The family of this 45-nucleotide sequence from Sulfuriroseicoccus oceanibius is "Acido-Lenti-1 RNA".
[Rfam]
RNA sequence: CCCACGGCUCCGCCGUGGGCUACGAUGCCCCGCACCUCCGGUGCU
Dot-bracket structure: ((((((((...))))))))............(((((...))))).
Numbered sequence: 001c002c003c004a005c006g007g008c009u010c011c012g013c014c015g016u017g018g019g020c021u022a023c024g025a026u027g028c029c030c031c032g033c034a035c036c037u038c039c040g041g042u043g044c045u
Stems, first nucleotide, its partner, number of pairs: 001019008032044005
Annotation:
Pairs were carried over by alignment from the consensus structure, which is taken from published work. NCBI's taxonomy places the organism under Bacteria, Pseudomonadati, Verrucomicrobiota, Verrucomicrobiia, Sulfuriroseicoccus. Rfam classes the family as a small RNA.